[Rfam]
RNA sequence: GAAAAUAAAAAGUAAUUGCGUGCGUGCAAUCAACUUUUCCCCCUCGAUUCGUCUUGUACGAUUCACUCUCUAACGAACUUAAAAUUGUGGCAUAUGUCACAGUGGGUUUCGUUCUGCUGUGCGUGUGCUACGCUUUGAUUUAAGUGAAGCUUUUGUGUCUUCAGCUUCCCUCUUCUCCUCGUGGGGUUCCGUUCCCGCGGUAGUGAGCCUGGUGUGGUUCCGCCCGCGCCAGUGAUGGAGGGUGCUUUAGGCACUAACAAGCUUAGAUCUAUGGUGUCGAUCACCCUUGAUUGGAUCGAC
Numbered sequence: 001g002a003a004a005a006u007a008a009a010a011a012g013u014a015a016u017u018g019c020g021u022g023c024g025u026g027c028a029a030u031c032a033a034c035u036u037u038u039c040c041c042c043c044u045c046g047a048u049u050c051g052u053c054u055u056g057u058a059c060g061a062u063u064c065a066c067u068c069u070c071u072a073a074c075g076a077a078c079u080u081a082a083a084a085u086u087g088u089g090g091c092a093u094a095u096g097u098c099a100c101a102g103u104g105g106g107u108u109u110c111g112u113u114c115u116g117c118u119g120u121g122c123g124u125g126u127g128c129u130a131c132g133c134u135u136u137g138a139u140u141u142a143a144g145u146g147a148a149g150c151u152u153u154u155g156u157g158u159c160u161u162c163a164g165c166u167u168c169c170c171u172c173u174u175c176u177c178c179u180c181g182u183g184g185g186g187u188u189c190c191g192u193u194c195c196c197g198c199g200g201u202a203g204u205g206a207g208c209c210u211g212g213u214g215u216g217g218u219u220c221c222g223c224c225c226g227c228g229c230c231a232g233u234g235a236u237g238g239a240g241g242g243u244g245c246u247u248u249a250g251g252c253a254c255u256a257a258c259a260a261g262c263u264u265a266g267a268u269c270u271a272u273g274g275u276g277u278c279g280a281u282c283a284c285c286c287u288u289g290a291u292u293g294g295a296u297c298g299a300c
Base pairs, nucleotide, nucleotide: 009037010036011035012034013033015030016029017028018027019026049061050060051059052058087131088130089129090128093125094124095123099120100119101118102117103116104115105114106113157169182197183196184195185194186193209232210231211230212229213228214227215226216225217224
RNA: Betacoronavirus 5'UTR